[Rfam]
RNA sequence: GCCGGGCGUCGUGGCGGGCGCUUGUAAUCCAAGUGACUGGGAGGCGGGCACUGGCGGAUGGAGUGAGAGAAGGAGAACUGGUAGGCGUGGGAUUACGGAGACCGAGCGUCCAGGCCAAGCGUGGCGUCGAUAAGGUGUCAUAGCAGGAAUGUCAUGGCAGCUGGUCUGUGUAAAGAGGGGCGUAUGGCUCAGGGCCGAAAGGCAGCAGGCAAAAGUCCCCGCGUCACGACGGUGGUCGGAUAGCGCUUGCGAGUAGUCAACGGCUGGCAGCCUUCUCGAUACCCUCAGACCCAGUGCUAC
Numbered sequence: 001g002c003c004g005g006g007c008g009u010c011g012u013g014g015c016g017g018g019c020g021c022u023u024g025u026a027a028u029c030c031a032a033g034u035g036a037c038u039g040g041g042a043g044g045c046g047g048g049c050a051c052u053g054g055c056g057g058a059u060g061g062a063g064u065g066a067g068a069g070a071a072g073g074a075g076a077a078c079u080g081g082u083a084g085g086c087g088u089g090g091g092a093u094u095a096c097g098g099a100g101a102c103c104g105a106g107c108g109u110c111c112a113g114g115c116c117a118a119g120c121g122u123g124g125c126g127u128c129g130a131u132a133a134g135g136u137g138u139c140a141u142a143g144c145a146g147g148a149a150u151g152u153c154a155u156g157g158c159a160g161c162u163g164g165u166c167u168g169u170g171u172a173a174a175g176a177g178g179g180g181c182g183u184a185u186g187g188c189u190c191a192g193g194g195c196c197g198a199a200a201g202g203c204a205g206c207a208g209g210c211a212a213a214a215g216u217c218c219c220c221g222c223g224u225c226a227c228g229a230c231g232g233u234g235g236u237c238g239g240a241u242a243g244c245g246c247u248u249g250c251g252a253g254u255a256g257u258c259a260a261c262g263g264c265u266g267g268c269a270g271c272c273u274u275c276u277c278g279a280u281a282c283c284c285u286c287a288g289a290c291c292c293a294g295u296g297c298u299a300c
Stems, first nucleotide, its partner, number of pairs: 001045003004023007028042003047298008059287003063283001067277007078270003082266003086262003090258001092257005103249007110239002113237005119230001120228008128168001129166003133162002136159006143152003169175001177219005187210003194203003